[Rfam]
RNA sequence: UGUGUCGGGGUGGGCUGACCCUGCGGCCAACUAACCCUAAUGGCGGCUGCGCCCCCUCACACCUGCCCGCUGUUUUACUCGCUGACUUUCAGCGGGCAAAGGGGGCGGCCUAGGGAAGGGGGGGAGGGAAAGGGUUCCGGCCUCAAAAAAAGCCAGCGACGGGGCUCCACACCCCGGCCCACCCUGGGGUCCCUGUCCCUCCUCCGUAAUCGGGGAUGCUCCCGCCUUCGCCCUUCGUUGAGGCCGCGGUCGGCAGGCUCAGCGCCAUUACCGCCGCGAAGAGUUCGUCUCUGUCAGCCUCGGCGGCGGCCGGGACCGGAGGGCCGGCCCGCCCAAUCUGGGCAACCGGGGGACCCCAGCAGAACAAAACGGGCGCGGCGCCUCCGGGCGCUGAGCAGCCGCGGCUCCCUCAGACGUGGGGUGCGCGGUCGGCGCCGCCCCGACACAC
Numbered sequence: 001u002g003u004g005u006c007g008g009g010g011u012g013g014g015c016u017g018a019c020c021c022u023g024c025g026g027c028c029a030a031c032u033a034a035c036c037c038u039a040a041u042g043g044c045g046g047c048u049g050c051g052c053c054c055c056c057u058c059a060c061a062c063c064u065g066c067c068c069g070c071u072g073u074u075u076u077a078c079u080c081g082c083u084g085a086c087u088u089u090c091a092g093c094g095g096g097c098a099a100a101g102g103g104g105g106c107g108g109c110c111u112a113g114g115g116a117a118g119g120g121g122g123g124g125a126g127g128g129a130a131a132g133g134g135u136u137c138c139g140g141c142c143u144c145a146a147a148a149a150a151a152g153c154c155a156g157c158g159a160c161g162g163g164g165c166u167c168c169a170c171a172c173c174c175c176g177g178c179c180c181a182c183c184c185u186g187g188g189g190u191c192c193c194u195g196u197c198c199c200u201c202c203u204c205c206g207u208a209a210u211c212g213g214g215g216a217u218g219c220u221c222c223c224g225c226c227u228u229c230g231c232c233c234u235u236c237g238u239u240g241a242g243g244c245c246g247c248g249g250u251c252g253g254c255a256g257g258c259u260c261a262g263c264g265c266c267a268u269u270a271c272c273g274c275c276g277c278g279a280a281g282a283g284u285u286c287g288u289c290u291c292u293g294u295c296a297g298c299c300u301c302g303g304c305g306g307c308g309g310c311c312g313g314g315a316c317c318g319g320a321g322g323g324c325c326g327g328c329c330c331g332c333c334c335a336a337u338c339u340g341g342g343c344a345a346c347c348g349g350g351g352g353a354c355c356c357c358a359g360c361a362g363a364a365c366a367a368a369a370c371g372g373g374c375g376c377g378g379c380g381c382c383u384c385c386g387g388g389c390g391c392u393g394a395g396c397a398g399c400c401g402c403g404g405c406u407c408c409c410u411c412a413g414a415c416g417u418g419g420g421g422u423g424c425g426c427g428g429u430c431g432g433c434g435c436c437g438c439c440c441c442g443a444c445a446c447a448c
Base pairs, nucleotide, nucleotide: 004178005177006176007175008174009173010172011171012170014168017165019164020163021162022161051106052105053104054103055102064098065097066096067095068094069093070092071091072090081157082156083155084154086152087150088149089148184359185358186357187356188355189354190353220315221314222313223312224311226309229305230304231303232302245278246277247276248275249274251273252272253271256266257265258264280292281291282290283289371440372439373438374437377436378435379434380433381432382431399428400427401426402425403424406421407420408419409418
The family of this 448-nucleotide sequence from Picathartes gymnocephalus is "Vertebrate telomerase RNA". It scores 158 bits against the family's covariance model. It is annotated as a non-coding RNA gene. Lineage of the source: Eukaryota > Metazoa > Chordata > Archelosauria > Picathartes. The family is grouped with related families in Rfam's "Telomerase clan". The family's consensus secondary structure is taken from published work. A reference for the family is Antal et al. (2002), "Analysis of the structure of human telomerase RNA in vivo", Nucleic Acids Res. Telomerase is a ribonucleoprotein reverse transcriptase that synthesises telomeric DNA. Telomerase RNAs differ greatly in sequence and structure between vertebrates, ciliates and yeasts, but they share a 5' pseudoknot structure close to the template sequence. Vertebrate telomerase RNAs have a 3' H/ACA snoRNA-like domain.